A member of the RNA family "Small Cajal body specific RNA 8" from Leptobrachium leishanense, 129 nucleotides long. By type it is a small Cajal body RNA. The family's consensus secondary structure is taken from published work. Rfam describes the family as follows. scaRNAs are a specific class of small nuclear RNAs which localise to the Cajal bodies and guide the modification of RNA polymerase II transcribed spliceosomal RNAs U1, U2, U4, U5 and U12. Lineage of the source: Eukaryota > Metazoa > Dipnotetrapodomorpha > Tetrapoda > Leptobrachium. The match comes from Rfam's covariance-model search (120 bits).

[Rfam]
RNA sequence: UGGGGGAUUGAUACUCAGGCAGAGGAAACAUGCUCUGUUUGUCACUAAAUCUCCCUAAAAUAAGACUGCCUUCUGAUGACCGGGAUGAAUUGAGAGAAAUCAUAACGGACAGAUACGGGGCAGACAUAC
Numbered sequence: 001u002g003g004g005g006g007a008u009u010g011a012u013a014c015u016c017a018g019g020c021a022g023a024g025g026a027a028a029c030a031u032g033c034u035c036u037g038u039u040u041g042u043c044a045c046u047a048a049a050u051c052u053c054c055c056u057a058a059a060a061u062a063a064g065a066c067u068g069c070c071u072u073c074u075g076a077u078g079a080c081c082g083g084g085a086u087g088a089a090u091u092g093a094g095a096g097a098a099a100u101c102a103u104a105a106c107g108g109a110c111a112g113a114u115a116c117g118g119g120g121c122a123g124a125c126a127u128a129c
Stems, first nucleotide, its partner, number of pairs: 002055006016041003022035003066123007080108003085103004